[Rfam]
RNA sequence: CCGCCACAGUGUCUGGGCAAAGUAGGCUGUUUUUAAUAGUACUAACUUAAUCCACUGAUGGCUAUAUAGAAGCAUUGUGUAAUCCCCGAGCACCUCUGUGGUGUAUUGGAUUCAUGACAUUGCGACAAGU
Numbered sequence: 001c002c003g004c005c006a007c008a009g010u011g012u013c014u015g016g017g018c019a020a021a022g023u024a025g026g027c028u029g030u031u032u033u034u035a036a037u038a039g040u041a042c043u044a045a046c047u048u049a050a051u052c053c054a055c056u057g058a059u060g061g062c063u064a065u066a067u068a069g070a071a072g073c074a075u076u077g078u079g080u081a082a083u084c085c086c087c088g089a090g091c092a093c094c095u096c097u098g099u100g101g102u103g104u105a106u107u108g109g110a111u112u113c114a115u116g117a118c119a120u121u122g123c124g125a126c127a128a129g130u
Stems, first nucleotide, its partner, number of pairs: 003062003007057004015053003020048003023044003026040005073124001075122001077120004086109004090104005
RNA: Caenorhabditis snoRNA ceN84
Organism: Caenorhabditis brenneri